[Rfam]
RNA sequence: UGGAGAAGGGGAGCACGUGCAAUGCAGGUGUCAAUAUCUAGCCUUUGCACGUGCCCUGCUUCUCCAAC
Numbered sequence: 001u002g003g004a005g006a007a008g009g010g011g012a013g014c015a016c017g018u019g020c021a022a023u024g025c026a027g028g029u030g031u032c033a034a035u036a037u038c039u040a041g042c043c044u045u046u047g048c049a050c051g052u053g054c055c056c057u058g059c060u061u062c063u064c065c066a067a068c
Stems, first nucleotide, its partner, number of pairs: 001066008010057002013054010024043001028035002
RNA: MIR164 microRNA precursor family
Organism: Carica papaya